[Rfam]
RNA sequence: GGGCUUGUGAUGAUAAAUCAUUAUAUCUUAGCGGAUUUCAGUGAGGCUUCAUCGUCAAUGAUCUGAUUGUUACACACACUGAAGCCC
Numbered sequence: 001g002g003g004c005u006u007g008u009g010a011u012g013a014u015a016a017a018u019c020a021u022u023a024u025a026u027c028u029u030a031g032c033g034g035a036u037u038u039c040a041g042u043g044a045g046g047c048u049u050c051a052u053c054g055u056c057a058a059u060g061a062u063c064u065g066a067u068u069g070u071u072a073c074a075c076a077c078a079c080u081g082a083a084g085c086c087c
Base pairs, nucleotide, nucleotide: 001087002086003085004084005083
Shown here is an 87-nucleotide RNA sequence from Eucalyptus grandis, a member of the family "Small nucleolar RNA R11/Z151". NCBI's taxonomy places the organism under Eukaryota, Viridiplantae, Embryophyta, Myrtaceae, Eucalyptus. Rfam links the family to the GO terms RNA processing and nucleolus. Rfam 15.1 lists 802 matches to the family in 218 species. The family's consensus secondary structure was predicted with PFOLD.